Annotation: The record is a 105-nucleotide RNA from Clostridium tyrobutyricum, which matches "Guanidine-I riboswitch aptamer" in Rfam. The organism belongs to Clostridium tyrobutyricum, within Bacteria.
RNA sequence: UUAGAAGUUUUAUAGGGUUCCGCAGUUUUAAACUAAGAACUGGUCUGGUCCGAGAUAAAGCAUAUAGUUUGACUGUAUACACGGAGGGAUAAAAGCCCGGGAGAU
Numbered sequence: 001u002u003a004g005a006a007g008u009u010u011u012a013u014a015g016g017g018u019u020c021c022g023c024a025g026u027u028u029u030a031a032a033c034u035a036a037g038a039a040c041u042g043g044u045c046u047g048g049u050c051c052g053a054g055a056u057a058a059a060g061c062a063u064a065u066a067g068u069u070u071g072a073c074u075g076u077a078u079a080c081a082c083g084g085a086g087g088g089a090u091a092a093a094a095g096c097c098c099g100g101g102a103g104a105u
Stems, first nucleotide, its partner, number of pairs: 007061006015051002020048002022045001023042006062078007080100001082103001086098003
The pairing is the family consensus, mapped onto this sequence.